[Rfam]
RNA sequence: CCCAGCGGUAGUCAGCUGCCCGUUGCUGUGCAGUGCCUGCGGUAGUGUUAUGCUGCUGGGAGAGAAACAUGCUGCCGGAGUCGCUCCUGGCACCGCCAGUGCCGUUCUGGCACGAGGUGGUGGCAGGGUUUGGCGGCGCGCUGCAUGCUCGAGAGUGGAGUGACUCCUCGGUGGGGUUAAUCCUAGACUGGAUGCAGACACC
Number, nucleotide and partner (000 for none) at each position: 001c060002c059003c058004a057005g056006c055007g054008g053009u052010a000011g051012u050013c000014a000015g046016c045017u044018g043019c042020c041021c039022g038023u000024u000025g036026c035027u000028g000029u000030g000031c000032a000033g000034u000035g026036c025037c000038u022039g021040c000041g020042g019043u018044a017045g016046u015047g000048u000049u000050a012051u011052g009053c008054u007055g006056c005057u004058g003059g002060g001061a000062g000063a000064g000065a000066a000067a000068c000069a000070u138071g137072c136073u135074g134075c133076c132077g131078g000079a000080g000081u000082c000083g129084c128085u127086c126087c000088u000089g000090g000091c122092a121093c120094c119095g000096c117097c116098a000099g000100u112101g111102c110103c109104g000105u000106u000107c000108u000109g103110g102111c101112a100113c000114g000115a000116g097117g096118u000119g094120g093121u092122g091123g000124c000125a000126g086127g085128g084129u083130u000131u077132g076133g075134c074135g073136g072137c071138g070139c000140g000141c197142u196143g195144c194145a193146u192147g000148c190149u000150c000151g000152a000153g000154a000155g000156u000157g183158g182159a181160g000161u179162g178163a177164c176165u175166c174167c173168u000169c000170g000171g000172u000173g167174g166175g165176g164177u163178u162179a161180a000181u159182c158183c157184u000185a000186g000187a000188c000189u000190g148191g000192a146193u145194g144195c143196a142197g141198a000199c000200a000201c000202c000
The family of this 202-nucleotide RNA sequence from Pluvianellus socialis is "Small nucleolar RNA SNORA74". Rfam 15.1 lists 1,348 matches to the family in 628 species. Clan: SNORA74 clan. Lineage of the source: Eukaryota > Gnathostomata > Amniota > Saurischia > Pluvianellus. Gene Ontology terms of the family: nucleolus and RNA processing. A reference for the family is Ganot et al. (1997), "The family of box ACA small nucleolar RNAs is defined by an evolutionarily conserved secondary structure and ubiquitous sequence elements essential for RNA accumulation", Genes Dev. U19 belongs to the H/ACA class of snoRNAs. snoRNAs bind a number of proteins (including dyskerin, Gar1p and Nop10p in the case of the H/ACA class) to form snoRNP complexes. This class are thought to guide the sites of modification of uridines to pseudouridines by forming direct base pairing interactions with substrate RNAs. Targets may include ribosomal and spliceosomal RNAs but the exact functions of many snoRNAs, including U19, are not confirmed. Co-precipitation of U19 snoRNA with RNase MRP RNA suggests that U19 may be involved in pre-rRNA processing.